Description:
The record is a 126-nucleotide RNA sequence from Manihot esculenta, which matches "MIR390 microRNA precursor family" in Rfam. The literature on the family includes a 2005 paper in Plant Physiol by Xie et al., "Expression of Arabidopsis MIRNA genes".
[Rfam]
RNA sequence: UGGAAGAAUCUGUUAAGCUCAGGAGGGAUAGCGCCAUGGAUGUUUUUGUAAUCGAUCAUGUCUCUAGAUUCCUGGGUUUUGAUCCUUCUGUAGCGCUAUCCAUCCUGAGUUCAAUAGGUUCUUCUU
Numbered sequence: 001u002g003g004a005a006g007a008a009u010c011u012g013u014u015a016a017g018c019u020c021a022g023g024a025g026g027g028a029u030a031g032c033g034c035c036a037u038g039g040a041u042g043u044u045u046u047u048g049u050a051a052u053c054g055a056u057c058a059u060g061u062c063u064c065u066a067g068a069u070u071c072c073u074g075g076g077u078u079u080u081g082a083u084c085c086u087u088c089u090g091u092a093g094c095g096c097u098a099u100c101c102a103u104c105c106u107g108a109g110u111u112c113a114a115u116a117g118g119u120u121c122u123u124c125u126u
Stems, first nucleotide, its partner, number of pairs: 010117001016111009026101009
It scores 104 bits against the family's covariance model.